[Rfam]
RNA sequence: GGCUUGAUAGCUCAGUCGGUAGAGCAAAGGACUGAAAAUCCUUGUGUCGCUGGUUCGAUUCCAGCUCAAGCCA
Numbered sequence: 001g002g003c004u005u006g007a008u009a010g011c012u013c014a015g016u017c018g019g020u021a022g023a024g025c026a027a028a029g030g031a032c033u034g035a036a037a038a039u040c041c042u043u044g045u046g047u048c049g050c051u052g053g054u055u056c057g058a059u060u061c062c063a064g065c066u067c068a069a070g071c072c073a
Stems, first nucleotide, its partner, number of pairs: 001072007010025004027043005049065005
This 73-nucleotide sequence from Candidatus Mesenet longicola belongs to the Rfam family "tRNA". NCBI's taxonomy places the organism under Bacteria, Pseudomonadati, Pseudomonadota, Rickettsiales, Candidatus Mesenet. By type it is a transfer RNA.